[Rfam]
RNA sequence: GUUUUGAGAACCCCUUGAAUCAAGUACUGUAGUAGUGAUUCAAGGGGUUCUC
Numbered sequence: 001g002u003u004u005u006g007a008g009a010a011c012c013c014c015u016u017g018a019a020u021c022a023a024g025u026a027c028u029g030u031a032g033u034a035g036u037g038a039u040u041c042a043a044g045g046g047g048u049u050c051u052c
Stems, first nucleotide, its partner, number of pairs: 006052017
Dot-bracket structure: .....(((((((((((((((((.............)))))))))))))))))
The family of this 52-nucleotide sequence from Cyamopsis tetragonoloba is "Plastid-ccsA-ndhD-2 3UTR RNA". A reference for the family is Richter et al. (2023), "Retrograde signaling in plants: A critical review focusing on the GUN pathway and beyond", Plant Commun. Rfam describes the family as follows. Plastid ccsA-ndhD-2 is a non-coding RNA (ncRNA) recognised in plastids. It was found in the three prime untranslated region (3UTR) of ccsA and ndhD genes, its 3UTR location suggests a role in transcript maturation. The family's RNA type in Rfam is cis-regulatory element. The sequence is in the family's curated seed alignment. Rfam 15.1 lists 875 matches to the family in 517 species.